Rfam assigns this 75-nucleotide RNA sequence from Acaryochloris thomasi to the family "Cyano-1 RNA". Pairs were carried over by alignment from the consensus structure, which is taken from published work. The match comes from Rfam's covariance-model search (51 bits).
RNA sequence: UAGCUCGUGAGGAGUGAUUCAAACAAAAAGCCCCGGGAGUCGAAACAAGGAAAGACGUCCUAGGGCUUUUUUUUA
Numbered sequence: 001u002a003g004c005u006c007g008u009g010a011g012g013a014g015u016g017a018u019u020c021a022a023a024c025a026a027a028a029a030g031c032c033c034c035g036g037g038a039g040u041c042g043a044a045a046c047a048a049g050g051a052a053a054g055a056c057g058u059c060c061u062a063g064g065g066c067u068u069u070u071u072u073u074u075a
Base pairs, nucleotide, nucleotide: 026070027069028068029067030066031065032064036060037059038058039056040055041054